[Rfam]
RNA: Vault RNA
RNA sequence: GCGUUGGCUAGCUCAGGGGUUACUUCCAACCCUUCCAAGAUUAACCACUUCUGCAAUUUGCAGGAUCAAACCCCGGGCGCCAUCCAGCGUUUUC
Numbered sequence: 001g002c003g004u005u006g007g008c009u010a011g012c013u014c015a016g017g018g019g020u021u022a023c024u025u026c027c028a029a030c031c032c033u034u035c036c037a038a039g040a041u042u043a044a045c046c047a048c049u050u051c052u053g054c055a056a057u058u059u060g061c062a063g064g065a066u067c068a069a070a071c072c073c074c075g076g077g078c079g080c081c082a083u084c085c086a087g088c089g090u091u092u093u094c
Stems, first nucleotide, its partner, number of pairs: 002089006011078004016074004024070002028066001
Dot-bracket structure: .((((((...((((.((((....((..(.....................................)..)))))))))).....)))))).....